A member of the RNA family "MIR7486 microRNA precursor family" from Gossypium davidsonii, 87 nucleotides long. The organism belongs to Gossypium, within Eukaryota. Rfam links the family to the GO terms RISC complex and miRNA-mediated post-transcriptional gene silencing. The base pairs follow the family's consensus structure, which was predicted with RNAalifold.
RNA sequence: AACGUCAGCGCGCUUUGCAGACGUGGCAACAAAUCGCGUCCACGUAAGAGCGAUUUGUGUCAACAUCAGCAAAGCGCGUUGACGUGG
Numbered sequence: 001a002a003c004g005u006c007a008g009c010g011c012g013c014u015u016u017g018c019a020g021a022c023g024u025g026g027c028a029a030c031a032a033a034u035c036g037c038g039u040c041c042a043c044g045u046a047a048g049a050g051c052g053a054u055u056u057g058u059g060u061c062a063a064c065a066u067c068a069g070c071a072a073a074g075c076g077c078g079u080u081g082a083c084g085u086g087g
Base pairs, nucleotide, nucleotide: 002085003084004083005082006081007080008079009078010077011076012075013074014073015072016071017070018069020067021066023064024063026061029058030057031056032055033054034053035052036051037050